[Rfam]
RNA sequence: GGAGUAUUCUAGGUGGCCGCUCCCUUUUGGGAGAGGAAAGUCCGGGCUCCAUAGGGCAGGACGCUGGGUAACCCCCAGUUGGUGCAAACCAAAGGAAAGUGCCACAGAAACAAACCGCCCCUUCAGGGCAAGGGUGAAAAGGUGGAGUAAGAGCCCACCGGGUGAAAAGCGAUUUUCACGCCAGGCAAACCCCGUCCGGAGCAAGACCGAAUAGGGGGGGAAGACGCUGCCCGCCGACCCCCGGGUACGGUCGCGCAAAGGCCGCCGUGAGGCGGUCUUCAGAUAAAUGGUCACCCUGAGACAGAACCCGGCUUAUUGAAUGCUCCCUUU
Numbered sequence: 001g002g003a004g005u006a007u008u009c010u011a012g013g014u015g016g017c018c019g020c021u022c023c024c025u026u027u028u029g030g031g032a033g034a035g036g037a038a039a040g041u042c043c044g045g046g047c048u049c050c051a052u053a054g055g056g057c058a059g060g061a062c063g064c065u066g067g068g069u070a071a072c073c074c075c076c077a078g079u080u081g082g083u084g085c086a087a088a089c090c091a092a093a094g095g096a097a098a099g100u101g102c103c104a105c106a107g108a109a110a111c112a113a114a115c116c117g118c119c120c121c122u123u124c125a126g127g128g129c130a131a132g133g134g135u136g137a138a139a140a141g142g143u144g145g146a147g148u149a150a151g152a153g154c155c156c157a158c159c160g161g162g163u164g165a166a167a168a169g170c171g172a173u174u175u176u177c178a179c180g181c182c183a184g185g186c187a188a189a190c191c192c193c194g195u196c197c198g199g200a201g202c203a204a205g206a207c208c209g210a211a212u213a214g215g216g217g218g219g220g221a222a223g224a225c226g227c228u229g230c231c232c233g234c235c236g237a238c239c240c241c242c243g244g245g246u247a248c249g250g251u252c253g254c255g256c257a258a259a260g261g262c263c264g265c266c267g268u269g270a271g272g273c274g275g276u277c278u279u280c281a282g283a284u285a286a287a288u289g290g291u292c293a294c295c296c297u298g299a300g301a302c303a304g305a306a307c308c309c310g311g312c313u314u315a316u317u318g319a320a321u322g323c324u325c326c327c328u329u330u
Stems, first nucleotide, its partner, number of pairs: 001326009011316001012295007020033005038314003042311005047201004054232004059197005064078005079093001080091004094192002099190002101186003115133002117129004141159005161181001162179007205252004215242005226234002259278008
Dot-bracket structure: (((((((((.((((((((.(((((....)))))....[[[.[[[[[((((...[[[[.((((((((((.....)))))(((((....)))).)((...(((((...........((((((.....))))..)).......(((((.........))))).((((((((....))))))).)..)))..)))))))))))))...((((......(((((......((.]]]]))...)))))......))))......((((((((....))))))))..........)))))))...........]]]]]]]].).)))))))))....
Bacterial RNase P class A: a 330-nucleotide sequence from Aminivibrio pyruvatiphilus. It scores 282 bits against the family's covariance model. Pairs were carried over by alignment from the consensus structure, which is taken from published work. The family's RNA type in Rfam is ribozyme.